[Rfam]
RNA sequence: AAAUUUCGCCGCUUCGCUGGAACCCUUCCCGUUCGCUUGCUAUAGCUCAAUGACCCCUGCCGAUUCAUGGCAUAACAACAGGCAACCGAUGGUUGCUAUAACGCAUGCGCACAGGGAGACACACCGCAAUGCAUCC
Numbered sequence: 001a002a003a004u005u006u007c008g009c010c011g012c013u014u015c016g017c018u019g020g021a022a023c024c025c026u027u028c029c030c031g032u033u034c035g036c037u038u039g040c041u042a043u044a045g046c047u048c049a050a051u052g053a054c055c056c057c058u059g060c061c062g063a064u065u066c067a068u069g070g071c072a073u074a075a076c077a078a079c080a081g082g083c084a085a086c087c088g089a090u091g092g093u094u095g096c097u098a099u100a101a102c103g104c105a106u107g108c109g110c111a112c113a114g115g116g117a118g119a120c121a122c123a124c125c126g127c128a129a130u131g132c133a134u135c136c
Stems, first nucleotide, its partner, number of pairs: 013116003019029003034109003038105003058072005081097006
This 136-nucleotide RNA sequence from Leclercia adecarboxylata belongs to the Rfam family "opuB ncRNA motif". The sequence is in the family's curated seed alignment. Rfam links the family to the GO term regulation of gene expression. Rfam classes the family as a cis-regulatory element. The source organism's lineage runs through Bacteria, Pseudomonadati, Gammaproteobacteria, Enterobacteriaceae and Leclercia.